[Rfam]
RNA sequence: GUAAAUGACUCGGGGUGCCCUUCUACGUGAAGGCUGAGAAAUACCCGUAUUACCUGAUCUGGAUAAUGCCAGCGUAGGGAAGUCUCGAUACCCAGCC
Numbered sequence: 001g002u003a004a005a006u007g008a009c010u011c012g013g014g015g016u017g018c019c020c021u022u023c024u025a026c027g028u029g030a031a032g033g034c035u036g037a038g039a040a041a042u043a044c045c046c047g048u049a050u051u052a053c054c055u056g057a058u059c060u061g062g063a064u065a066a067u068g069c070c071a072g073c074g075u076a077g078g079g080a081a082g083u084c085u086c087g088a089u090a091c092c093c094a095g096c097c
Base pairs, nucleotide, nucleotide: 007084008083009082010081011047012046013045014044016041017034018033019032021030053078054077055076056075059072060071061070062069

Shown here is a 97-nucleotide RNA sequence from Serratia odorifera, a member of the family "TPP riboswitch aptamer (THI element)".